[Rfam]
RNA sequence: CGUUUAUGACCAGACUUGGGCUUGGUUAAUCAUCUGGGGUUCUCUCCAGUGCACUUUUCCAGUCCAGGCCAGCAUCAGUUUUCGCCGGGGGAUAAAGACUUCAGGAAUGUGGCUCCUCUCGGGGAGUGUUAUAGCCUGUUGUGUAAUACCCUGGCGGGGACUGAGGUUCGCGCUUCUGCAAGGAUGCUGGCGUAAUGGUCAUCAACGACCCGUCUUGAAACACGG
Numbered sequence: 001c002g003u004u005u006a007u008g009a010c011c012a013g014a015c016u017u018g019g020g021c022u023u024g025g026u027u028a029a030u031c032a033u034c035u036g037g038g039g040u041u042c043u044c045u046c047c048a049g050u051g052c053a054c055u056u057u058u059c060c061a062g063u064c065c066a067g068g069c070c071a072g073c074a075u076c077a078g079u080u081u082u083c084g085c086c087g088g089g090g091g092a093u094a095a096a097g098a099c100u101u102c103a104g105g106a107a108u109g110u111g112g113c114u115c116c117u118c119u120c121g122g123g124g125a126g127u128g129u130u131a132u133a134g135c136c137u138g139u140u141g142u143g144u145a146a147u148a149c150c151c152u153g154g155c156g157g158g159g160a161c162u163g164a165g166g167u168u169c170g171c172g173c174u175u176c177u178g179c180a181a182g183g184a185u186g187c188u189g190g191c192g193u194a195a196u197g198g199u200c201a202u203c204a205a206c207g208a209c210c211c212g213u214c215u216u217g218a219a220a221c222a223c224g225g
Base pairs, nucleotide, nucleotide: 001207002206003205004204006202007201008200009199010198011197012196017066018065019064020063021062022061024059070189071188072187073186074185075184076183210225211224212223213222

Source information: Rfam assigns this 225-nucleotide part of an RNA from Fusarium longipes to the family "Eukaryotic large subunit ribosomal RNA". Pairs were carried over by alignment from the consensus structure, which is taken from published work. Gene Ontology terms of the family: ribosome and structural constituent of ribosome.